[Rfam]
RNA sequence: UGAACCAGAACAACCAUAGAUCUGUGUCCAGGUUUCCUGUUCACGGGGACUUCGGUCUCUGUGUUUCGGUUGAGAGCUGGGCAGUUCGACGUUAUAAGGAGCCAUUAUAUUCACUGCUGAUGGCGAUUUCCAGUCGACGGAUCUCAGAUUAAAUGUUGGGCAUCAGGUGUUCACGCCGGUCUUGAGCUCCCUUCCACGUGUUUGGUGAGCUCGGCUGGUGAUUCUGGUGUUUGACGGCGUCAUAUUCCUGAUCCCUUCGCCGAUUGGCCGUUGGCCAGUGAGGUUGGGGAAAAACCAUGACUUGCCAACAUCC
Numbered sequence: 001u002g003a004a005c006c007a008g009a010a011c012a013a014c015c016a017u018a019g020a021u022c023u024g025u026g027u028c029c030a031g032g033u034u035u036c037c038u039g040u041u042c043a044c045g046g047g048g049a050c051u052u053c054g055g056u057c058u059c060u061g062u063g064u065u066u067c068g069g070u071u072g073a074g075a076g077c078u079g080g081g082c083a084g085u086u087c088g089a090c091g092u093u094a095u096a097a098g099g100a101g102c103c104a105u106u107a108u109a110u111u112c113a114c115u116g117c118u119g120a121u122g123g124c125g126a127u128u129u130c131c132a133g134u135c136g137a138c139g140g141a142u143c144u145c146a147g148a149u150u151a152a153a154u155g156u157u158g159g160g161c162a163u164c165a166g167g168u169g170u171u172c173a174c175g176c177c178g179g180u181c182u183u184g185a186g187c188u189c190c191c192u193u194c195c196a197c198g199u200g201u202u203u204g205g206u207g208a209g210c211u212c213g214g215c216u217g218g219u220g221a222u223u224c225u226g227g228u229g230u231u232u233g234a235c236g237g238c239g240u241c242a243u244a245u246u247c248c249u250g251a252u253c254c255c256u257u258c259g260c261c262g263a264u265u266g267g268c269c270g271u272u273g274g275c276c277a278g279u280g281a282g283g284u285u286g287g288g289g290a291a292a293a294a295c296c297a298u299g300a301c302u303u304g305c306c307a308a309c310a311u312c313c
Stems, first nucleotide, its partner, number of pairs: 018144008026082006033075004037069003042063002045060002048057003090136002093133001098124001101121001103119001155231001162228006178216004184212006190205002236306003239301005252290005259284003266276004
This 313-nucleotide sequence from Aspergillus wentii belongs to the Rfam family "A. fumigatus sRNA Afu_309". Lineage of the source: Eukaryota > Eurotiomycetes > Eurotiomycetidae > Aspergillus > Aspergillus wentii. The match comes from Rfam's covariance-model search (230 bits). On this family, see Jochl et al., Nucleic Acids Res 2008: "Small ncRNA transcriptome analysis from Aspergillus fumigatus suggests a novel mechanism for regulation of protein synthesis".